[Rfam]
Shown here is a 126-nucleotide RNA sequence from Streptomyces paludis, a member of the family "Streptomyces RNA 3920". Identified by deep sequencing of transcriptome at the end of exponential growth phase. Sequencing size consistent with northern blot size. Streptomyces specific. It is annotated as a small RNA. Taxonomically the source falls in Streptomyces (Bacteria, Bacillati, Actinomycetota, Kitasatosporales). On this family, see Vockenhuber et al., RNA Biol 2011: "Deep sequencing-based identification of small non-coding RNAs in Streptomyces coelicolor".
RNA sequence: GAUAGGUCGCUGUCGCUACUGUGAUUGGACACUGACGCAGAGUCAACUAGCCUUGGGCAAAUGGUUCUCCGCGCGUGGAACCUGGGACGGUCCGAGCCAUGAGGGGGGAGGCUCGGACCGUCCGUU
Numbered sequence: 001g002a003u004a005g006g007u008c009g010c011u012g013u014c015g016c017u018a019c020u021g022u023g024a025u026u027g028g029a030c031a032c033u034g035a036c037g038c039a040g041a042g043u044c045a046a047c048u049a050g051c052c053u054u055g056g057g058c059a060a061a062u063g064g065u066u067c068u069c070c071g072c073g074c075g076u077g078g079a080a081c082c083u084g085g086g087a088c089g090g091u092c093c094g095a096g097c098c099a100u101g102a103g104g105g106g107g108g109a110g111g112c113u114c115g116g117a118c119c120g121u122c123c124g125u126u
Base pairs, nucleotide, nucleotide: 001014002013003012004011005010015051016050017049018048021032022031023030033045034044035043036042058075062071063070064069077082086122087121088120089119090118091117092116093115094114095113096112097111098110100107